[Rfam]
Overview: Rfam assigns this 81-nucleotide sequence from Streptomyces daliensis to the family "nrdJ RNA". The base pairs follow the family's consensus structure, which is taken from published work. A search with the family's covariance model found it, with a score of 64 bits.

RNA sequence: ACACGACCGGAGCCCCGCACGGUGCUCCGGCGAUCAGACAGACAUCGUGCCCCGGGAAGAAUCGGGGCACAUCGGGGCGUU
Numbered sequence: 001a002c003a004c005g006a007c008c009g010g011a012g013c014c015c016c017g018c019a020c021g022g023u024g025c026u027c028c029g030g031c032g033a034u035c036a037g038a039c040a041g042a043c044a045u046c047g048u049g050c051c052c053c054g055g056g057a058a059g060a061a062u063c064g065g066g067g068c069a070c071a072u073c074g075g076g077g078c079g080u081u
Stems, first nucleotide, its partner, number of pairs: 004032002007030007015022002047070008